The record is a 143-nucleotide sequence from Bacillus sp. SJS, which matches "c-di-AMP riboswitch aptamer (ydaO/yuaA leader)" in Rfam.
Gene Ontology terms of the family: cyclic-di-AMP binding and regulation of gene expression.
Rfam describes the family as follows. This family represents a conserved RNA structure found upstream of the ydaO and yuaA genes in Bacillus subtilis and related genes in other bacteria.
A search with the family's covariance model found it, with a score of 73 bits.
RNA sequence: AAAUUUUACUGGCUUAAUCCCGUAAACACGGGAACGGAGGAACCAAUUUUUUUGGGGCUAAUUCUGCUUUAGCAGAAGGGAUGAAAGGACUCUUUCGCCAUCCUGCCCGUCAGCUAACUUCGUCGGCUAAAGCGAAGGAGGUC
Numbered sequence: 001a002a003a004u005u006u007u008a009c010u011g012g013c014u015u016a017a018u019c020c021c022g023u024a025a026a027c028a029c030g031g032g033a034a035c036g037g038a039g040g041a042a043c044c045a046a047u048u049u050u051u052u053u054g055g056g057g058c059u060a061a062u063u064c065u066g067c068u069u070u071a072g073c074a075g076a077a078g079g080g081a082u083g084a085a086a087g088g089a090c091u092c093u094u095u096c097g098c099c100a101u102c103c104u105g106c107c108c109g110u111c112a113g114c115u116a117a118c119u120u121c122g123u124c125g126g127c128u129a130a131a132g133c134g135a136a137g138g139a140g141g142u143c
Stems, first nucleotide, its partner, number of pairs: 011128004018033005034123006044054002055108003063076004079103004